[Rfam]
RNA sequence: GGUGAGAGUGAGUUCCGAGUUACCAUUGCCGUCCAGGCGUGGUAAACGUAAGGGUAUGGGGAGAAAUCCCCAUGCCUGCCAGUGCGCAAAGGAAGUCCGUAAUGGACUUC
Number, nucleotide and partner (000 for none) at each position: 001g000002g000003u104004g103005a000006g000007a000008g000009u000010g000011a096012g000013u094014u093015c092016c091017g000018a000019g000020u045021u044022a043023c042024c041025a040026u039027u000028g038029c037030c036031g000032u000033c000034c000035a000036g030037g029038c028039g026040u025041g024042g023043u022044a021045a020046a000047c000048g000049u000050a000051a000052g077053g076054g075055u074056a073057u072058g071059g070060g069061g068062a067063g000064a000065a000066a000067u062068c061069c060070c059071c058072a057073u056074g055075c054076c053077u052078g087079c086080c000081a000082g000083u000084g000085c000086g079087c078088a000089a000090a000091g016092g015093a014094a013095g000096u011097c000098c000099g000100u000101a000102a000103u004104g003105g000106a000107c000108u000109u000110c000

A member of the RNA family "Molybdenum/Tungsten riboswitch aptamer (Moco RNA motif)" from Thermosinus carboxydivorans, 110 nucleotides long.
Taxonomically the source falls in Thermosinus carboxydivorans (Bacteria, Bacillati, Selenomonadales, Sporomusaceae).
Pairs were carried over by alignment from the consensus structure, which is taken from published work.